Shown here is a 66-nucleotide RNA from Effusibacillus lacus, a member of the family "Bacillaceae-1 RNA".
A search with the family's covariance model found it, with a score of 36 bits.
The family's consensus secondary structure is taken from published work.

[Rfam]
RNA sequence: ACAUCUCGCGGGUCGAUGAAAAGCGCCACGUCCUGUGGCAUCAUCGACACUAGGACACCCUGUCCC
Numbered sequence: 001a002c003a004u005c006u007c008g009c010g011g012g013u014c015g016a017u018g019a020a021a022a023g024c025g026c027c028a029c030g031u032c033c034u035g036u037g038g039c040a041u042c043a044u045c046g047a048c049a050c051u052a053g054g055a056c057a058c059c060c061u062g063u064c065c066c
Stems, first nucleotide, its partner, number of pairs: 012048006025039005053065004